The family of this 165-nucleotide RNA from Butyrivibrio sp. XB500-5 is "Clostridiales-1 RNA". Pairs were carried over by alignment from the consensus structure, which is taken from published work. By type it is a small RNA. NCBI's taxonomy places the organism under Bacteria, Bacillota, Clostridia, Lachnospirales, Butyrivibrio.

RNA sequence: UGAUAUAGGUGUCGUAAUUAAAACAGUCCACUUCAUGCUCGCAUGAAAGUGGACUGCUUUUAAUUUACGACCCGAACAAUAAUGAGGAAGUAGCACGAUAGUGCGGAUUCCGAAUUAUUGCAGAAUUGCGAGAGCUGCUUUAGCAGCGAAGCAAUUCGUAUAUCA
Numbered sequence: 001u002g003a004u005a006u007a008g009g010u011g012u013c014g015u016a017a018u019u020a021a022a023a024c025a026g027u028c029c030a031c032u033u034c035a036u037g038c039u040c041g042c043a044u045g046a047a048a049g050u051g052g053a054c055u056g057c058u059u060u061u062a063a064u065u066u067a068c069g070a071c072c073c074g075a076a077c078a079a080u081a082a083u084g085a086g087g088a089a090g091u092a093g094c095a096c097g098a099u100a101g102u103g104c105g106g107a108u109u110c111c112g113a114a115u116u117a118u119u120g121c122a123g124a125a126u127u128g129c130g131a132g133a134g135c136u137g138c139u140u141u142a143g144c145a146g147c148g149a150a151g152c153a154a155u156u157c158g159u160a161u162a163u164c165a
Stems, first nucleotide, its partner, number of pairs: 001165007011071004017064007024056009033046005077120007086111004093104004123157007134147004